Shown here is a 132-nucleotide RNA from Chlorocebus sabaeus, a member of the family "Small nucleolar RNA SNORA25". From the family's description: ACA25 is a member of the H/ACA class of snoRNA that guide the sites of modification of uridines to pseudouridines.
RNA sequence: AGGUCACUUCAAAGGGGGCUUGUGGGGCUGUGAAACCAAGAGGUAGGUCUUAACAGUAUAACCAAAGACUGAAGUUCUCUAUAGGAUGCCAUAGCACUUAACGGUGCUAUGUUUUCCUCAGGAGAUAUGACU
Numbered sequence: 001a002g003g004u005c006a007c008u009u010c011a012a013a014g015g016g017g018g019c020u021u022g023u024g025g026g027g028c029u030g031u032g033a034a035a036c037c038a039a040g041a042g043g044u045a046g047g048u049c050u051u052a053a054c055a056g057u058a059u060a061a062c063c064a065a066a067g068a069c070u071g072a073a074g075u076u077c078u079c080u081a082u083a084g085g086a087u088g089c090c091a092u093a094g095c096a097c098u099u100a101a102c103g104g105u106g107c108u109a110u111g112u113u114u115u116c117c118u119c120a121g122g123a124g125a126u127a128u129g130a131c132u
Stems, first nucleotide, its partner, number of pairs: 002063003006059001014051004019046002023039001026037002076125005083118004091110008
The base pairs follow the family's consensus structure, which was predicted with RNAfold. Rfam classes the family as an H/ACA-box small nucleolar RNA. Taxonomically the source falls in Chlorocebus (Eukaryota, Tetrapoda, Cercopithecidae, Cercopithecinae).